The record is a 348-nucleotide RNA from Muraenolepis orangiensis, which matches "Vertebrate telomerase RNA" in Rfam. Rfam 15.1 lists 523 matches to the family in 477 species. Rfam's curators write: Telomerase is a ribonucleoprotein reverse transcriptase that synthesises telomeric DNA. Telomerase RNAs differ greatly in sequence and structure between vertebrates, ciliates and yeasts, but they share a 5' pseudoknot structure close to the template sequence. Vertebrate telomerase RNAs have a 3' H/ACA snoRNA-like domain. A search with the family's covariance model found it, with a score of 87 bits.

[Rfam]
RNA sequence: UUGCGUGCGGCGGGGUGUUUCUUCUAACCCUACAUGCGGAGGGCCUCCUGUACUUCUAUCGUUUACUGUUUUCGCCUCCCGCUUUCAGUGAACCACAGGGGGUUGUCGUCCACGGGCGAUGGGAAAACUAAAAAAAAAGCGUGGAAUUUGACCCCGUCAUGCUUCGUGUUGUCUCGUCAGAAACACUAGAAACACGCCGUGGUCAGUCCGGCUGCCACGAAGAGUCCGUCUCUGAUGCUCUGGUCGUUUCUGCGGGACGGAUGAUGAUGUGUAAGCAGAUCAAACUGAGCAGGGUCCAUUCUGACUGUCUUUAAUAGUCCGUCUAGAUAAGCCCACGCUCAAACAUUC
Numbered sequence: 001u002u003g004c005g006u007g008c009g010g011c012g013g014g015g016u017g018u019u020u021c022u023u024c025u026a027a028c029c030c031u032a033c034a035u036g037c038g039g040a041g042g043g044c045c046u047c048c049u050g051u052a053c054u055u056c057u058a059u060c061g062u063u064u065a066c067u068g069u070u071u072u073c074g075c076c077u078c079c080c081g082c083u084u085u086c087a088g089u090g091a092a093c094c095a096c097a098g099g100g101g102g103u104u105g106u107c108g109u110c111c112a113c114g115g116g117c118g119a120u121g122g123g124a125a126a127a128c129u130a131a132a133a134a135a136a137a138a139g140c141g142u143g144g145a146a147u148u149u150g151a152c153c154c155c156g157u158c159a160u161g162c163u164u165c166g167u168g169u170u171g172u173c174u175c176g177u178c179a180g181a182a183a184c185a186c187u188a189g190a191a192a193c194a195c196g197c198c199g200u201g202g203u204c205a206g207u208c209c210g211g212c213u214g215c216c217a218c219g220a221a222g223a224g225u226c227c228g229u230c231u232c233u234g235a236u237g238c239u240c241u242g243g244u245c246g247u248u249u250c251u252g253c254g255g256g257a258c259g260g261a262u263g264a265u266g267a268u269g270u271g272u273a274a275g276c277a278g279a280u281c282a283a284a285c286u287g288a289g290c291a292g293g294g295u296c297c298a299u300u301c302u303g304a305c306u307g308u309c310u311u312u313a314a315u316a317g318u319c320c321g322u323c324u325a326g327a328u329a330a331g332c333c334c335a336c337g338c339u340c341a342a343a344c345a346u347u348c
Base pairs, nucleotide, nucleotide: 005162006161007160009158010157011156012155013154014153015152017147018146019145020144021143044102045101046100047099048098061093062092063091064090065089066088067087068086078139083137084136085135165275167273168272169271170259171258172257173256174255175254176253178252179251180250181249182248183247184246185244186243187242188241189240198219199218200217201216202215204214205213206212207211221233222232223231224230287340288339289338290337292334293333294332295331298328299327300326